[Rfam]
RNA sequence: CCUUCCGAAGUUUCCCUCAGGAUAGCUGGAUCUCAGGCAGUUAUAUUCGGUAAAGCUAAUGAUUAGAGGCCUUGGGGACGUAAUGUCCUCAACCUAUUCUCAAACUUUCAAUGGAUAUGAAGUUGCAGUUUCUUUAGUGAACUGUCAACGUGAAUGCGAGGUCCAAGUGGGCCAUUUUUGGUAAGCAGAACUGGCGCUGUGGGAUGAACCAAACGUGGAGUUAAGGUGCCUAACUUCUCGCUCAUGAGACCCCAUAAAAGGUGUUGGUUGAUAUUGACAGCAGGACGGUGGCCAUGGAAGUCGGUAUCCGCUAAGGAGUGUGUAACAACUCACCUGCCGAAUCAACUAGCCCUGAAAAUGGAUGGCGCUUAAGCGAGAGACCUAUACUCCGCCGUUGCGACAUGUGCGUUGUCUAGCGCCAGGUCGUAACGAGUAGGAAGGUCGUGGCGGUUGCGUUGAAGGCUAUGAGCGUAGGCUCGGCUGGAGCUUCCGUCAGUGCAGAU
Number, nucleotide and partner (000 for none) at each position: 001c441002c440003u439004u438005c437006c436007g000008a000009a000010g000011u024012u000013u022014c021015c020016c000017u000018c000019a000020g015021g014022a013023u000024a011025g000026c000027u165028g164029g163030a162031u161032c160033u159034c000035a000036g000037g000038c000039a000040g000041u120042u119043a118044u117045a116046u115047u114048c113049g000050g000051u000052a000053a108054a106055g105056c000057u000058a000059a000060u102061g101062a100063u000064u000065a097066g000067a095068g094069g093070c000071c000072u092073u091074g090075g089076g088077g087078a000079c085080g000081u000082a000083a000084u000085g079086u000087c077088c076089u075090c074091a073092a072093c069094c068095u067096a000097u065098u000099c000100u062101c061102a060103a000104a000105c055106u054107u000108u053109c000110a000111a000112u000113g048114g047115a046116u045117a044118u043119g042120a041121a000122g000123u147124u000125g145126c144127a143128g142129u141130u140131u000132c000133u000134u000135u000136a000137g000138u000139g000140a130141a129142c128143u127144g126145u125146c000147a123148a000149c000150g000151u000152g000153a000154a000155u000156g000157c000158g000159a033160g032161g031162u030163c029164c028165a027166a000167g000168u000169g000170g000171g195172c194173c193174a192175u000176u190177u189178u188179u187180g186181g000182u000183a000184a000185g000186c180187a179188g178189a177190a176191c000192u174193g173194g172195c171196g000197c000198u000199g000200u211201g210202g209203g000204a000205u000206g000207a000208a000209c202210c201211a200212a000213a000214c000215g392216u391217g390218g389219a388220g000221u386222u000223a000224a000225g382226g381227u380228g000229c000230c000231u000232a000233a000234c379235u000236u378237c000238u000239c375240g374241c373242u000243c000244a000245u000246g000247a000248g000249a000250c000251c000252c000253c000254a000255u000256a000257a000258a000259a353260g352261g351262u000263g350264u349265u348266g347267g346268u345269u344270g343271a342272u341273a000274u000275u000276g000277a000278c000279a000280g337281c336282a335283g334284g333285a000286c310287g309288g308289u000290g000291g305292c304293c303294a000295u000296g000297g000298a000299a000300g000301u000302c000303g293304g292305u291306a000307u000308c288309c287310g286311c315312u000313a000314a000315g311316g331317a000318g000319u000320g329321u328322g000323u000324a000325a000326c000327a000328a321329c320330u000331c316332a000333c284334c283335u282336g281337c280338c000339g000340a000341a272342u271343c270344a269345a268346c267347u266348a265349g264350c263351c261352c260353u259354g000355a000356a000357a000358a000359u000360g000361g000362a000363u000364g000365g000366c000367g000368c000369u000370u000371a000372a000373g241374c240375g239376a000377g000378a236379g234380a227381c226382c225383u000384a000385u000386a221387c000388u219389c218390c217391g216392c215393c431394g430395u429396u428397g427398c426399g425400a424401c423402a000403u000404g000405u000406g000407c000408g000409u000410u000411g000412u000413c000414u000415a000416g000417c000418g000419c000420c000421a000422g000423g401424u400425c399426g398427u397428a396429a395430c394431g393432a000433g000434u000435a000436g006437g005438a004439a003440g002441g001442u000443c498444g000445u495446g494447g493448c492449g491450g490451u000452u000453g487454c486455g000456u000457u000458g000459a000460a000461g482462g481463c000464u000465a000466u000467g000468a477469g476470c475471g000472u000473a000474g000475g470476c469477u468478c000479g000480g000481c462482u461483g000484g000485a000486g454487c453488u000489u000490c450491c449492g448493u447494c446495a445496g000497u000498g443499c000500a000501g000502a000503u000
This 503-nucleotide part of an RNA from Caenorhabditis elegans belongs to the Rfam family "Eukaryotic large subunit ribosomal RNA". Clan: LSU clan. Rfam's curators put it in the seed alignment. Gene Ontology terms of the family: ribosome and structural constituent of ribosome. The organism belongs to Caenorhabditis, within Eukaryota.